[Rfam]
Description: Rfam assigns this 121-nucleotide RNA sequence from Peribacillus asahii to the family "PyrR binding site". This family represents the PyrR binding site and terminator structure. This RNA structure is found upstream of a variety of genes involved in pyrimidine biosynthesis and transport. The alignment also includes a portion of the antiterminator structure. It scores 68 bits against the family's covariance model. The source organism's lineage runs through Bacteria, Bacilli, Caryophanales, Bacillaceae and Peribacillus. It is annotated as a cis-regulatory element.
RNA sequence: UGAACCUUUAACACAGUCCAGAGAGGCUGAGAAGGUAACGGAAUGAGUAAUAGGAUAGAAUUGCCUAUUACGGAUGUUACAAAAUUCUCAUGCCUUUUGAAGGUAUGAGAAUUUUUUUGUU
Dot-bracket structure: ...((((((....(((((......))))).))))))....(.((..((((((((.........))))))))..)).)...(((((((((((((((.....)))))))))))))))......